Glycine riboswitch aptamer: a 142-nucleotide sequence from Paenibacillus sp. TCA20. The match comes from Rfam's covariance-model search (59 bits).
[Rfam]
RNA sequence: UUGAACGUAAAGGGAGAGAUUACCGCAGGAUUCUUGUUCUGAGCUUCUGAGCAGAGACAUUAUCCGCAUGGUAACGCCGAAGGAGUAAGCCCAUUGAUAAGCAAAGGGUGAAUCUCUCAGGCAAAAGGACUUUUACCGGACG
Numbered sequence: 001u002u003g004a005a006c007g008u009a010a011a012g013g014g015a016g017a018g019a020u021u022a023c024c025g026c027a028g029g030a031u032u033c034u035u036g037u038u039c040u041g042a043g044c045u046u047c048u049g050a051g052c053a054g055a056g057a058c059a060u061u062a063u064c065c066g067c068a069u070g071g072u073a074a075c076g077c078c079g080a081a082g083g084a085g086u087a088a089g090c091c092c093a094u095u096g097a098u099a100a101g102c103a104a105a106g107g108g109u110g111a112a113u114c115u116c117u118c119a120g121g122c123a124a125a126a127g128g129a130c131u132u133u134u135a136c137c138g139g140a141c142g
Base pairs, nucleotide, nucleotide: 007136008135009134010133011132012131013130020074021073022072023071024070025069076122077121078120079118080117083116084115085114089109090108091107092106